[Rfam]
RNA sequence: AAUACUCCUCUAAUGACCAGGCCGAGCGUACACCGCGCUCGGCACCACUUCGAAGAAGAAGGA
Dot-bracket structure: ....................(((((((((.....)))))))))....................
Numbered sequence: 001a002a003u004a005c006u007c008c009u010c011u012a013a014u015g016a017c018c019a020g021g022c023c024g025a026g027c028g029u030a031c032a033c034c035g036c037g038c039u040c041g042g043c044a045c046c047a048c049u050u051c052g053a054a055g056a057a058g059a060a061g062g063a
Stems, first nucleotide, its partner, number of pairs: 021043009

This 63-nucleotide sequence belongs to the Rfam family "Rothia-sucC RNA".
Rfam classes the family as a cis-regulatory element.
Rfam's curators put it in the seed alignment.